[Rfam]
RNA sequence: GGGCGAUUGGCGCAGUGGUAGCGCGCUUCCCUGACACGGAAGAGGUCGCUGGUUCGAACCCAGUAUCGCCCA
Numbered sequence: 001g002g003g004c005g006a007u008u009g010g011c012g013c014a015g016u017g018g019u020a021g022c023g024c025g026c027u028u029c030c031c032u033g034a035c036a037c038g039g040a041a042g043a044g045g046u047c048g049c050u051g052g053u054u055c056g057a058a059c060c061c062a063g064u065a066u067c068g069c070c071c072a
Stems, first nucleotide, its partner, number of pairs: 001071007010024004026042005048064005

tRNA: a 72-nucleotide RNA sequence from Candidatus Aquiluna sp. UB-MaderosW2red. The family's consensus secondary structure is taken from published work. Rfam classes the family as a transfer RNA. It scores 70 bits against the family's covariance model.